RNA sequence: UAGGCAUAGUAGGUGGUUGCUUUUGAUUACAAAAGAGGAAAGUCCGAGCUACAAAGACAGGAUUCCAUUUAACGAAUGGCUAGGGUAACCUAAGGGAAAGUGCAACAGAAAAUUACCGCCUUAUAGAAUCUUAAGAUCUUAAGGUAAGGGUGAAAAGGUGAGGUAAGAGCUCACCGGUCUUUCAGCAAUGUUAGGCGUCUAUGCAAACCCAAUUCGUAGCAAGAAGAAUAUGGUUAAAGUCUUAAGAUAAUAAAUUCUUCGCUUGAGAUAUGUUGUGAAACAUAUCCUAGAUAAAUAGCCACCCACGACAGAACUCGGCUUAUCGCUAUGCCUAUUUU
Numbered sequence: 001u002a003g004g005c006a007u008a009g010u011a012g013g014u015g016g017u018u019g020c021u022u023u024u025g026a027u028u029a030c031a032a033a034a035g036a037g038g039a040a041a042g043u044c045c046g047a048g049c050u051a052c053a054a055a056g057a058c059a060g061g062a063u064u065c066c067a068u069u070u071a072a073c074g075a076a077u078g079g080c081u082a083g084g085g086u087a088a089c090c091u092a093a094g095g096g097a098a099a100g101u102g103c104a105a106c107a108g109a110a111a112a113u114u115a116c117c118g119c120c121u122u123a124u125a126g127a128a129u130c131u132u133a134a135g136a137u138c139u140u141a142a143g144g145u146a147a148g149g150g151u152g153a154a155a156a157g158g159u160g161a162g163g164u165a166a167g168a169g170c171u172c173a174c175c176g177g178u179c180u181u182u183c184a185g186c187a188a189u190g191u192u193a194g195g196c197g198u199c200u201a202u203g204c205a206a207a208c209c210c211a212a213u214u215c216g217u218a219g220c221a222a223g224a225a226g227a228a229u230a231u232g233g234u235u236a237a238a239g240u241c242u243u244a245a246g247a248u249a250a251u252a253a254a255u256u257c258u259u260c261g262c263u264u265g266a267g268a269u270a271u272g273u274u275g276u277g278a279a280a281c282a283u284a285u286c287c288u289a290g291a292u293a294a295a296u297a298g299c300c301a302c303c304c305a306c307g308a309c310a311g312a313a314c315u316c317g318g319c320u321u322a323u324c325g326c327u328a329u330g331c332c333u334a335u336u337u338u
Stems, first nucleotide, its partner, number of pairs: 001334010011323001012303007020035006040321003044318005049219004060215005065079005080094001081092004095210002100208002102204003116149002118145006126137001157175006176199001177196004183190002223260004233251002239248003267286008
This 338-nucleotide RNA sequence from Helicobacter hepaticus belongs to the Rfam family "Bacterial RNase P class A". Rfam's curators put it in the seed alignment. Rfam's curators write: Ribonuclease P (RNase P) is a ubiquitous endoribonuclease, found in archaea, bacteria and eukarya as well as chloroplasts and mitochondria. Rfam links the family to the GO terms ribonuclease P activity, dimeric ribonuclease P complex and tRNA processing.